Rfam assigns this 79-nucleotide RNA sequence from Python bivittatus to the family "mir-130 microRNA precursor family". Taxonomically the source falls in Python (Eukaryota, Opisthokonta, Metazoa, Eumetazoa). The match comes from Rfam's covariance-model search (79 bits). The base pairs follow the family's consensus structure, which was predicted with PFOLD. On this family, see Lagos-Quintana et al., Curr Biol 2002: "Identification of tissue-specific microRNAs from mouse".

[Rfam]
Nucleotides: 079
Base pairs, nucleotide, nucleotide: 001079003077005074006073007072008071009070010069012067013066014065015064016063017062018061019060022057023056024055025054026053027052028051029050030049
Number, partner (000 for none) and nucleotide at each position: 001079c002000c003077c004000u005074g006073c007072c008071c009070g010069a011000g012067g013066c014065u015064c016063u017062u018061u019060u020000c021000a022057c023056a024055u025054u026053g027052u028051g029050c030049u031000a032000c033000u034000g035000a036000g037000c038000c039000c040000a041000a042000c043000c044000c045000a046000a047000g048000c049030a050029g051028u052027g053026c054025a055024a056023u057022g058000u059000a060019a061018a062017a063016a064015g065014g066013g067012c068000a069010u070009u071008g072007g073006g074005u075000u076000g077003g078000u079001g